[Rfam]
RNA sequence: UUCUUAUCGAGAGAAGCGGAGGGAACUGGCCCUGUGAAGCUUCAGCAACCAGCCAAGUAUUGGCCAGGUGCUAAAUCCAGCGAAUUGAAUUUUUUCAAUUCGGCAGAUAAGAA
Numbered sequence: 001u002u003c004u005u006a007u008c009g010a011g012a013g014a015a016g017c018g019g020a021g022g023g024a025a026c027u028g029g030c031c032c033u034g035u036g037a038a039g040c041u042u043c044a045g046c047a048a049c050c051a052g053c054c055a056a057g058u059a060u061u062g063g064c065c066a067g068g069u070g071c072u073a074a075a076u077c078c079a080g081c082g083a084a085u086u087g088a089a090u091u092u093u094u095u096c097a098a099u100u101c102g103g104c105a106g107a108u109a110a111g112a113a
Base pairs, nucleotide, nucleotide: 001113002112003111004110005109006108007107008106013043014042015041016040017039021032022031023030026080027079028078029077044072045071046070047069049068050067052064053063054062076105081102082101083100084099085098086097087096088095